[Rfam]
RNA: Bacterial RNase P class A
Organism: Planctopirus limnophila
RNA sequence: GGAGAAGAGGCAGGCAAUCGCUGCAUGCGGCAAAACACAGUUCUGUGAUUUGUUCGUGAUGGAGAGGAAAGUCCGGGCUCCUUAGGAGGCGGCGGUGGAUAACGUCCACCAUCCGUGAGGAUCGGGAAAGUGCCACAGAAAAGAUACCGCCUCCAGUUCGCUGGGGGUAAGGGUGAAAUGGUGCGGUAAGAGCGCACCGCAGUCUGGGUGACCAGACUGGCAGGGCAAACCCCGCCGGGAGCAAGACCAAGCAGGACGGAAUUCAGCUUCACGCUGAUCCAGAUCUCUCCGAUCUGGCCUCACCGUCCGGGUCGGUUGCAGGAGACGGUUGGCAACAAUCGUCCUAGAGAAAUGAUUGCCCACGACAGAACCCGGCUUACGCAGCUUCUCCAGAG
Dot-bracket structure: (((((((..(..(((((((.((.(((................................))).))....[[[.[[[[[((((...[[[[.((((((((((.....)))))(((((....)))).)((...(((((............((((((((((....))))))))..)).......((((((.......))))))(((((((((....)))))))).)..)))..)))))))))))))...((((.....((((((.....................(((((.]]]]))))).......)))))).....))))......((((((((....))))))))..........)))))))..........]]]]]]]]...)..)))))))....